[Rfam]
RNA sequence: UCGCUGAAAAUAUAGAACGAAAAUCAAGCAAUACUAGGAACCACCUCCUUGCCAGCCCAAUCUCCCUUGGGCUGGUUUUCUU
Numbered sequence: 001u002c003g004c005u006g007a008a009a010a011u012a013u014a015g016a017a018c019g020a021a022a023a024u025c026a027a028g029c030a031a032u033a034c035u036a037g038g039a040a041c042c043a044c045c046u047c048c049u050u051g052c053c054a055g056c057c058c059a060a061u062c063u064c065c066c067u068u069g070g071g072c073u074g075g076u077u078u079u080c081u082u
Base pairs, nucleotide, nucleotide: 036049037048038047039046051077052075053074054073055072056071057070058069059068060067
CyaR/Rye RNA: an 82-nucleotide sequence from Enterobacillus tribolii.
A reference for the family is Wassarman et al. (2001), "Identification of novel small RNAs using comparative genomics and microarrays", Genes Dev.
By type it is a small RNA.
Rfam's curators write: This sRNA was originally identified in a large scale screen of E. coli. It was shown to bind Hfq and called RyeE. This sRNA has since been characterised as a post-transcriptional regulator of the 18 kDa OmpX porin in Salmonella. Phylogenetic and mutational analyses suggest that a conserved RNA hairpin of this sRNA which features a C-rich apical loop, acts to sequester the Shine-Dalgarno sequence of ompX mRNA and inhibits translational initiation. The expression of this sRNA has been shown to be tightly controlled by the cyclic AMP receptor protein, CRP and has been renamed CyaR (cyclic AMP-activated RNA). CyaR appears to be highly conserved amongst enterobacteria and the cyaR gene is frequently located downstream of the yegQ gene.
The family's consensus secondary structure was predicted with PFOLD.